[Rfam]
RNA sequence: CCAUCAGAGCUGGUCACUGUCAUUACCCUCUGGUUAGGAUAUGGGAAUACUGGUGUUGA
Dot-bracket structure: ........((((((.....((((...(((......)))..))))....)))))).....
Numbered sequence: 001c002c003a004u005c006a007g008a009g010c011u012g013g014u015c016a017c018u019g020u021c022a023u024u025a026c027c028c029u030c031u032g033g034u035u036a037g038g039a040u041a042u043g044g045g046a047a048u049a050c051u052g053g054u055g056u057u058g059a
Stems, first nucleotide, its partner, number of pairs: 009054006020044004027038003
Transposase-1 RNA: a 59-nucleotide sequence from Limosilactobacillus secaliphilus. It scores 72 bits against the family's covariance model. Lineage of the source: Bacteria > Bacillota > Lactobacillales > Lactobacillaceae > Limosilactobacillus.